[Rfam]
RNA sequence: UCCCUUUCGCGCCGACGAACAAGUGCCUAUAUUCGGGUCGCCGUCGCAAGGCGGCUAUGGCAAUAAACGGACAUCGCAAUAAGCCAUUCGGACCCGGGGGCGGUACCCGGCGCCUCCACCAAAGCCCAGCGCAGGUUGGGCUUCGGCGGGGGCGAAAUAGGAUCGACGAGGGUGUAAAGGGUGCUCUUUUGCUCGGCAUGGUUCCGCCGUUAUCGGGCCAUUGCAAUAGUUGCCAACGACAACUUUGCUCCGGUUGCGGUUGCCGCGUAAGCGGUAACUAAACCGAUCUGAAGCCCUGGCGGGUAGCACCGUCAGGCGGGGUUCGGAGGCACCUGGCAACAGAAGCCUCCACU
Numbered sequence: 001u002c003c004c005u006u007u008c009g010c011g012c013c014g015a016c017g018a019a020c021a022a023g024u025g026c027c028u029a030u031a032u033u034c035g036g037g038u039c040g041c042c043g044u045c046g047c048a049a050g051g052c053g054g055c056u057a058u059g060g061c062a063a064u065a066a067a068c069g070g071a072c073a074u075c076g077c078a079a080u081a082a083g084c085c086a087u088u089c090g091g092a093c094c095c096g097g098g099g100g101c102g103g104u105a106c107c108c109g110g111c112g113c114c115u116c117c118a119c120c121a122a123a124g125c126c127c128a129g130c131g132c133a134g135g136u137u138g139g140g141c142u143u144c145g146g147c148g149g150g151g152g153c154g155a156a157a158u159a160g161g162a163u164c165g166a167c168g169a170g171g172g173u174g175u176a177a178a179g180g181g182u183g184c185u186c187u188u189u190u191g192c193u194c195g196g197c198a199u200g201g202u203u204c205c206g207c208c209g210u211u212a213u214c215g216g217g218c219c220a221u222u223g224c225a226a227u228a229g230u231u232g233c234c235a236a237c238g239a240c241a242a243c244u245u246u247g248c249u250c251c252g253g254u255u256g257c258g259g260u261u262g263c264c265g266c267g268u269a270a271g272c273g274g275u276a277a278c279u280a281a282a283c284c285g286a287u288c289u290g291a292a293g294c295c296c297u298g299g300c301g302g303g304u305a306g307c308a309c310c311g312u313c314a315g316g317c318g319g320g321g322u323u324c325g326g327a328g329g330c331a332c333c334u335g336g337c338a339a340c341a342g343a344a345g346c347c348u349c350c351a352c353u
Stems, first nucleotide, its partner, number of pairs: 040055005059193005069186002072183004084172002088169003094110005111154007194209004199220003203217003319334004325350006